[Rfam]
RNA sequence: GCUCAUCCUCUCUAAUCCUUUGUCCCUGGGUGAAAAUGCUAUUUGUAUGCAAUGCACCCGGGCAAGGAUUUGGGGAAGGUGAGC
Dot-bracket structure: .............(((((((....((((((((....(((.........)))...)))))))).)))))))..............
A member of the RNA family "mir-500 microRNA precursor family" from Mus musculus, 84 nucleotides long. The sequence is in the family's curated seed alignment. The base pairs follow the family's consensus structure, which was predicted with RNAalifold. Lineage of the source: Eukaryota > Vertebrata > Teleostomi > Euarchontoglires > Mus. A reference for the family is Linsen et al. (2010), "Small RNA expression and strain specificity in the rat", BMC Genomics.